[Rfam]
RNA: c-di-GMP-I riboswitch aptamer
RNA sequence: UAUAAAUAAAGGUACAACCGGGGAAACCCGGUGUCACAAAGCUAUCGGGGCUAAGGAUUCUUUCUAUGCCAGCCAGCUGCCCUU
Numbered sequence: 001u002a003u004a005a006a007u008a009a010a011g012g013u014a015c016a017a018c019c020g021g022g023g024a025a026a027c028c029c030g031g032u033g034u035c036a037c038a039a040a041g042c043u044a045u046c047g048g049g050g051c052u053a054a055g056g057a058u059u060c061u062u063u064c065u066a067u068g069c070c071a072g073c074c075a076g077c078u079g080c081c082c083u084u
Stems, first nucleotide, its partner, number of pairs: 012037002017032006040078004047074002049070003056064002